[Rfam]
RNA: Gammacoronavirus 3'UTR
Organism: Canada goose coronavirus
RNA sequence: AAUCCGUAUAUGUCUAAUGCCUGGAUAAUGUCUAAUCUGUGUGUCUAGUAGCCAGGAAACGAACGGCACACCCUUAGGUUUUAAUUUAGUUUAAUUAGGUUAGUUUAGGUUAGUUUAGAGUAGUUUAAAAGAUGCCAUGUGCCGGGGCCACGCGGAGUACGAUCGAGGGUACAGCACAUGGACGCCCAUUUUGAUUAAUGGGAAGAGCUAGAUUUAGUUUAGGUUUAGUUUAAUUGGCUAAAAGUAAUUAAAAUUUGUAGGCUAGUAUAGAGUUAGAGC
Dot-bracket structure: ......(((..((.(..(((((((.................(((...))).))))).......))..).))..........(((.((((.....)))).))).((((((....)))))))))................((((.....((.((((.....))..)).)).....)))).......((((((......))))))....(((......)))...((((.(......).))))....((((.......)))).....................